[Rfam]
RNA sequence: GUAGGCUAUGGCGACAUGGCGCCCAAGACCUAUGCUGGAAUGUUUGUUGGUGCCCUUUGCGCCCUUGCGGGGGUUCUGACCAUAGCUUUGCCGGUGCCCGUCAUAGUUUCUAAU
Numbered sequence: 001g002u003a004g005g006c007u008a009u010g011g012c013g014a015c016a017u018g019g020c021g022c023c024c025a026a027g028a029c030c031u032a033u034g035c036u037g038g039a040a041u042g043u044u045u046g047u048u049g050g051u052g053c054c055c056u057u058u059g060c061g062c063c064c065u066u067g068c069g070g071g072g073g074u075u076c077u078g079a080c081c082a083u084a085g086c087u088u089u090g091c092c093g094g095u096g097c098c099c100g101u102c103a104u105a106g107u108u109u110c111u112a113a114u
Base pairs, nucleotide, nucleotide: 001114002113004111005110008107009106011104013102014101015100018097021095022094037077038076039075040074049063050062051061
RNA: Potassium channel RNA editing signal